[Rfam]
RNA sequence: GUGGGACGGUGUGCGUGGUUGCCAUCUGCGUUAUGUGCUGUUGCCAGGCUGUGUCCUACAGCUUGGACGGCAGUGCUCACUCCACAUACCUGCGGCCAUAGACUCACUGGAGAUCAUAGUACUGGCUCUGUGAUGUCUCUGACUCCUUACCACUGGCCAGCCUCCAUACUCUCCUACAAAC
Numbered sequence: 001g002u003g004g005g006a007c008g009g010u011g012u013g014c015g016u017g018g019u020u021g022c023c024a025u026c027u028g029c030g031u032u033a034u035g036u037g038c039u040g041u042u043g044c045c046a047g048g049c050u051g052u053g054u055c056c057u058a059c060a061g062c063u064u065g066g067a068c069g070g071c072a073g074u075g076c077u078c079a080c081u082c083c084a085c086a087u088a089c090c091u092g093c094g095g096c097c098a099u100a101g102a103c104u105c106a107c108u109g110g111a112g113a114u115c116a117u118a119g120u121a122c123u124g125g126c127u128c129u130g131u132g133a134u135g136u137c138u139c140u141g142a143c144u145c146c147u148u149a150c151c152a153c154u155g156g157c158c159a160g161c162c163u164c165c166a167u168a169c170u171c172u173c174c175u176a177c178a179a180a181c
Stems, first nucleotide, its partner, number of pairs: 013093002030085002035077001036075006043068001044066004050060003109174005122160006130153003135145001138142001

The family of this 181-nucleotide RNA from Salmo trutta is "Small nucleolar RNA SNORA23". On this family, see Huttenhofer et al., EMBO J 2001: "RNomics: an experimental approach that identifies 201 candidates for novel, small, non-messenger RNAs in mouse". Pairs were carried over by alignment from the consensus structure, which was predicted with RNAalifold. Gene Ontology terms of the family: nucleolus and RNA processing. The members of this family belong to the H/ACA class of snoRNAs which are thought to guide the sites of modification of uridines to pseudouridines. This family includes human snoRNA ACA23 (SNORA23) and mouse snoMBI-1. ACA23 is predicted to guide the pseudouridylation of residue U3737 and U4331 of 28S rRNA. By type it is an H/ACA-box small nucleolar RNA.